[Rfam]
RNA: SAM riboswitch aptamer (S box leader)
Organism: Sphingobacterium hungaricum
RNA sequence: CGCUUAUAGAGAAAGGUAGAGGGAAUAGACCCGUUGAAGCCUUAGCAACCUGACACUUGGUCAAGGUGCUACAUUCUACUCCAAUUAAUGGAGAAACAUAAGUU
Numbered sequence: 001c002g003c004u005u006a007u008a009g010a011g012a013a014a015g016g017u018a019g020a021g022g023g024a025a026u027a028g029a030c031c032c033g034u035u036g037a038a039g040c041c042u043u044a045g046c047a048a049c050c051u052g053a054c055a056c057u058u059g060g061u062c063a064a065g066g067u068g069c070u071a072c073a074u075u076c077u078a079c080u081c082c083a084a085u086u087a088a089u090g091g092a093g094a095a096a097c098a099u100a101a102g103u104u
Stems, first nucleotide, its partner, number of pairs: 002103006013043005021032003026078004044070004049066002051063004074096001079093005